[Rfam]
RNA sequence: UGAAGUGAUAGAGGCGCAAUGACCAUUAGUACAAACUUUAAGGAGAGUGAGCUCCGUUGACGGGUUUGAAAAGGGGGAAUUGCCGAAGCGACGAGUUUCUCAUUGGCUUUGUUGCUGGGUCUGUCAUUGAAUAAAUGCAGAACUGUCGUAUAGUUAUUUACUAUAUGGAGGGCUAUCUUACGC
Numbered sequence: 001u002g003a004a005g006u007g008a009u010a011g012a013g014g015c016g017c018a019a020u021g022a023c024c025a026u027u028a029g030u031a032c033a034a035a036c037u038u039u040a041a042g043g044a045g046a047g048u049g050a051g052c053u054c055c056g057u058u059g060a061c062g063g064g065u066u067u068g069a070a071a072a073g074g075g076g077g078a079a080u081u082g083c084c085g086a087a088g089c090g091a092c093g094a095g096u097u098u099c100u101c102a103u104u105g106g107c108u109u110u111g112u113u114g115c116u117g118g119g120u121c122u123g124u125c126a127u128u129g130a131a132u133a134a135a136u137g138c139a140g141a142a143c144u145g146u147c148g149u150a151u152a153g154u155u156a157u158u159u160a161c162u163a164u165a166u167g168g169a170g171g172g173c174u175a176u177c178u179u180a181c182g183c
Stems, first nucleotide, its partner, number of pairs: 007177005016083005023076002032068007087116009097106002117144002120141004125137004146168007
RNA: Lysine riboswitch aptamer